Source information
The family of this 177-nucleotide RNA sequence from Callipepla squamata is "U2 spliceosomal RNA". NCBI's taxonomy places the organism under Eukaryota, Archosauria, Dinosauria, Galliformes, Callipepla. The family is grouped with related families in Rfam's "U2 clan".
[Rfam]
RNA sequence: AUUCGUGAAGCGUUCCAUAUUUUUUCUGUUCUUAUCAGUUUAAUAUCUGAUACGUCCUCGAUGAGAGGACUUUAUAUUAAACGGAUUUUUGGGCUCGGGAGUUGGACCCGGAGCUUGCUCCCUCCGCUCCGCGCAUCGUCCCGGUAUGGCAGUGCUUCCGGGUACGGUGCACCUCCC
Dot-bracket structure: (....)..........................((((((........)))))).((((((.....))))))...........................(((((.((....((((....)))).)).)))))..((((((.(((((.............)))))..)))))).......
Numbered sequence: 001a002u003u004c005g006u007g008a009a010g011c012g013u014u015c016c017a018u019a020u021u022u023u024u025u026c027u028g029u030u031c032u033u034a035u036c037a038g039u040u041u042a043a044u045a046u047c048u049g050a051u052a053c054g055u056c057c058u059c060g061a062u063g064a065g066a067g068g069a070c071u072u073u074a075u076a077u078u079a080a081a082c083g084g085a086u087u088u089u090u091g092g093g094c095u096c097g098g099g100a101g102u103u104g105g106a107c108c109c110g111g112a113g114c115u116u117g118c119u120c121c122c123u124c125c126g127c128u129c130c131g132c133g134c135a136u137c138g139u140c141c142c143g144g145u146a147u148g149g150c151a152g153u154g155c156u157u158c159c160g161g162g163u164a165c166g167g168u169g170c171a172c173c174u175c176c177c
Stems, first nucleotide, its partner, number of pairs: 001006001033052006054070006098130005104124002110121004133170006140162005

For this family Rfam cites "The spliceosomal snRNAs of Caenorhabditis elegans" (Thomas et al., Nucleic Acids Res, 1990).